A member of the RNA family "Nitrogen stress-induced RNA 1" from Coleofasciculus chthonoplastes, 54 nucleotides long. Lineage of the source: Bacteria > Bacillati > Cyanobacteriota > Cyanophyceae > Coleofasciculus chthonoplastes. A search with the family's covariance model found it, with a score of 45 bits. Rfam 15.1 lists 962 matches to the family in 163 species.
RNA sequence: UGGUAGAUGCACCCUGAUUUAGUCCUAGAGAUUUUUUCUCUGGGGCUUUUGUUA
Numbered sequence: 001u002g003g004u005a006g007a008u009g010c011a012c013c014c015u016g017a018u019u020u021a022g023u024c025c026u027a028g029a030g031a032u033u034u035u036u037u038c039u040c041u042g043g044g045g046c047u048u049u050u051g052u053u054a
Stems, first nucleotide, its partner, number of pairs: 002013003022046010